[Rfam]
RNA sequence: UCCCGAGGUUUUCCUCGGCAGUUAACUGCCGCCGGUUUACUAAAACUUCGACAGUUAACUGCUGAAGAGAAU
Dot-bracket structure: ...........((.((((((((((((((.......................)))))))))))))).))....
Numbered sequence: 001u002c003c004c005g006a007g008g009u010u011u012u013c014c015u016c017g018g019c020a021g022u023u024a025a026c027u028g029c030c031g032c033c034g035g036u037u038u039a040c041u042a043a044a045a046c047u048u049c050g051a052c053a054g055u056u057a058a059c060u061g062c063u064g065a066a067g068a069g070a071a072u
Stems, first nucleotide, its partner, number of pairs: 012068002015065014
Rfam assigns this 72-nucleotide sequence from Medicago truncatula to the family "MIR2629 microRNA precursor family". The base pairs follow the family's consensus structure, which was predicted with RNAalifold. It scores 64 bits against the family's covariance model.